[Rfam]
Rfam assigns this 132-nucleotide RNA from Nelumbo nucifera to the family "MIR403 microRNA precursor family". Pairs were carried over by alignment from the consensus structure, which was predicted with WAR. The family has 13 seed sequences and 215 matches in Rfam 15.1. For this family Rfam cites "High throughput approaches reveal splicing of primary microRNA transcripts and tissue specific expression of mature microRNAs in Vitis vinifera" (Mica et al., BMC Genomics, 2009).
RNA sequence: GCACAUAACAAGCUUGUGCGUGAAUCGAACCCUAUCAAAAGCUGUUGACCAUCAAUCUCGUCAAUCAGACGAAUCUCGAGGCCAAGAGACUACGGAUGGUGUUAGAUUCACGCACAAGCUCGCUAUAUGUCA
Numbered sequence: 001g002c003a004c005a006u007a008a009c010a011a012g013c014u015u016g017u018g019c020g021u022g023a024a025u026c027g028a029a030c031c032c033u034a035u036c037a038a039a040a041g042c043u044g045u046u047g048a049c050c051a052u053c054a055a056u057c058u059c060g061u062c063a064a065u066c067a068g069a070c071g072a073a074u075c076u077c078g079a080g081g082c083c084a085a086g087a088g089a090c091u092a093c094g095g096a097u098g099g100u101g102u103u104a105g106a107u108u109c110a111c112g113c114a115c116a117a118g119c120u121c122g123c124u125a126u127a128u129g130u131c132a
Stems, first nucleotide, its partner, number of pairs: 001130003005126003011120016028103003032099002043089001045087001